[Rfam]
RNA: Repression of heat shock gene expression (ROSE) element
RNA sequence: GUCGAGGCCUAAGGCUCGACGCAACAGGCGUCGCGGGGCGCCGCGAUGCUGCUUGUAACCCAUGUUGCUUCACGGAGGAUAUGGCUAUGAGAA
Numbered sequence: 001g002u003c004g005a006g007g008c009c010u011a012a013g014g015c016u017c018g019a020c021g022c023a024a025c026a027g028g029c030g031u032c033g034c035g036g037g038g039c040g041c042c043g044c045g046a047u048g049c050u051g052c053u054u055g056u057a058a059c060c061c062a063u064g065u066u067g068c069u070u071c072a073c074g075g076a077g078g079a080u081a082u083g084g085c086u087a088u089g090a091g092a093a
Stems, first nucleotide, its partner, number of pairs: 001020006008014002027050009052091006060084007068077003